RNA: Streptococcus sRNA SpR18
Organism: Peptoniphilus sp. oral taxon 375
Nucleotides: 131
Base pairs, nucleotide, nucleotide: 006034007033008032009031010030011029012028013027014026036124037123043118044117045116046115051066052065053064054063081102083101085099086098087097089095
Number, partner (000 for none) and nucleotide at each position: 001000u002000u003000c004000a005000a006034c007033a008032g009031u010030u011029a012028c013027a014026g015000a016000a017000g018000a019000u020000g021000c022000a023000a024000a025000a026014c027013u028012g029011u030010a031009a032008u033007u034006g035000g036124g037123a038000u039000u040000a041000a042000a043118a044117u045116g046115g047000a048000a049000a050000c051066a052065u053064u054063u055000a056000u057000a058000a059000a060000a061000a062000a063054g064053a065052a066051u067000a068000a069000a070000u071000u072000g073000a074000a075000u076000a077000a078000u079000u080000c081102u082000u083101c084000c085099a086098a087097g088000u089095g090000a091000u092000u093000u094000a095089c096000u097087u098086u099085u100000a101083g102081g103000c104000a105000a106000a107000a108000a109000a110000u111000u112000a113000g114000a115046c116045c117044g118043u119000a120000g121000u122000u123037u124036c125000a126000a127000g128000c129000u130000a131000c